A member of the RNA family "DUF805b RNA", 33 nucleotides long. Rfam classes the family as a cis-regulatory element.
RNA sequence: AAGGAGGAAGCCGAAAAUCCAUAAGAGUAGGCA
Numbered sequence: 001a002a003g004g005a006g007g008a009a010g011c012c013g014a015a016a017a018u019c020c021a022u023a024a025g026a027g028u029a030g031g032c033a
Stems, first nucleotide, its partner, number of pairs: 003020003010032003
Rfam's curators put it in the seed alignment.